The family of this 145-nucleotide RNA sequence from Mesorhizobium sp. WSM3876 is "Alphaproteobacterial sRNA BjrC1505". It scores 69 bits against the family's covariance model. The literature on the family includes a 2012 paper in RNA Biol by Madhugiri et al., "Small RNAs of the Bradyrhizobium/Rhodopseudomonas lineage and their analysis".
[Rfam]
RNA sequence: CCCGGCGUUAAGGCUUCGUUAAGCUUUACAGGUGUUUACUAUGCACAUCCAGUUUUGCUGGAUUCUUACCGAGUGGUUGGAGCCACUUUGUUUGACGCCUCCCUGUUAAACUCCUGAGAGCCGCCUUAUCCGCGGCUCUUUUUUU
Numbered sequence: 001c002c003c004g005g006c007g008u009u010a011a012g013g014c015u016u017c018g019u020u021a022a023g024c025u026u027u028a029c030a031g032g033u034g035u036u037u038a039c040u041a042u043g044c045a046c047a048u049c050c051a052g053u054u055u056u057g058c059u060g061g062a063u064u065c066u067u068a069c070c071g072a073g074u075g076g077u078u079g080g081a082g083c084c085a086c087u088u089u090g091u092u093u094g095a096c097g098c099c100u101c102c103c104u105g106u107u108a109a110a111c112u113c114c115u116g117a118g119a120g121c122c123g124c125c126u127u128a129u130c131c132g133c134g135g136c137u138c139u140u141u142u143u144u145u
Stems, first nucleotide, its partner, number of pairs: 001043001004040001005014002022033001024031002047063004071088006094107004116140009